[Rfam]
RNA: Group II catalytic intron D1-D4-1
Organism: Shewanella putrefaciens
RNA sequence: CUACUAACAUCAUGAGGUGUUGGGAUGGACUACCAGAAGUCAGCCGAAGCCGUAGUAGUGUUGCUAACCAACAGCAUGAAGGGC
Numbered sequence: 001c002u003a004c005u006a007a008c009a010u011c012a013u014g015a016g017g018u019g020u021u022g023g024g025a026u027g028g029a030c031u032a033c034c035a036g037a038a039g040u041c042a043g044c045c046g047a048a049g050c051c052g053u054a055g056u057a058g059u060g061u062u063g064c065u066a067a068c069c070a071a072c073a074g075c076a077u078g079a080a081g082g083g084c
Stems, first nucleotide, its partner, number of pairs: 001027001004023008040047002049084003058077006